Rfam assigns this 123-nucleotide RNA sequence from Microcebus murinus to the family "Small nucleolar RNA SNORA13".
It is one of the family's seed sequences.
Gene Ontology terms of the family: RNA processing and nucleolus.
The base pairs follow the family's consensus structure, which was predicted with CMfinder.
ACA13 is a member of the H/ACA class of snoRNA that guide the sites of modification of uridines to pseudouridines.
Rfam classes the family as an H/ACA-box small nucleolar RNA.
RNA sequence: UAGCUUUCUGUUGCCUGUUUACUUUCAAAACUAGUGAAUGUGGUGUCAAAAAUGUGUAAAUUAAACACUUAUCAGCAUUUUCCUGUUCUUAAAUUUGGUGUAGGAGCUGCGUAAGUAACAGUU
Numbered sequence: 001u002a003g004c005u006u007u008c009u010g011u012u013g014c015c016u017g018u019u020u021a022c023u024u025u026c027a028a029a030a031c032u033a034g035u036g037a038a039u040g041u042g043g044u045g046u047c048a049a050a051a052a053u054g055u056g057u058a059a060a061u062u063a064a065a066c067a068c069u070u071a072u073c074a075g076c077a078u079u080u081u082c083c084u085g086u087u088c089u090u091a092a093a094u095u096u097g098g099u100g101u102a103g104g105a106g107c108u109g110c111g112u113a114a115g116u117a118a119c120a121g122u123u
Stems, first nucleotide, its partner, number of pairs: 002055001004054001006052002009048002012045004016040008067116004073109004081105006087098002